This 188-nucleotide RNA sequence from Medicago truncatula belongs to the Rfam family "MIR2619 microRNA precursor family".
It scores 116 bits against the family's covariance model.
NCBI's taxonomy places the organism under Eukaryota, Gunneridae, rosids, Hologalegina, Medicago.
[Rfam]
RNA sequence: AAACAGCCCCCUAUAUAUUGGAUCUUUGGCAGUUUUGGCUCCCAAGGCCACUUUUGACUUAGUCUUCGCUGACGUGGCACCCACAUCCCUUAAGUGAGGUGCCACGUGUCGACCAUUGUGGGUGCUAUGUCAGCGAAGACUAAGUCAAAAGUGGUCUUGGGGGAGAUCCAAUACAUAGGGGGCUGCUU
Numbered sequence: 001a002a003a004c005a006g007c008c009c010c011c012u013a014u015a016u017a018u019u020g021g022a023u024c025u026u027u028g029g030c031a032g033u034u035u036u037g038g039c040u041c042c043c044a045a046g047g048c049c050a051c052u053u054u055u056g057a058c059u060u061a062g063u064c065u066u067c068g069c070u071g072a073c074g075u076g077g078c079a080c081c082c083a084c085a086u087c088c089c090u091u092a093a094g095u096g097a098g099g100u101g102c103c104a105c106g107u108g109u110c111g112a113c114c115a116u117u118g119u120g121g122g123u124g125c126u127a128u129g130u131c132a133g134c135g136a137a138g139a140c141u142a143a144g145u146c147a148a149a150a151g152u153g154g155u156c157u158u159g160g161g162g163g164a165g166a167u168c169c170a171a172u173a174c175a176u177a178g179g180g181g182g183c184u185g186c187u188u
Stems, first nucleotide, its partner, number of pairs: 001188002004185005012177003016173010039163007072130002075127011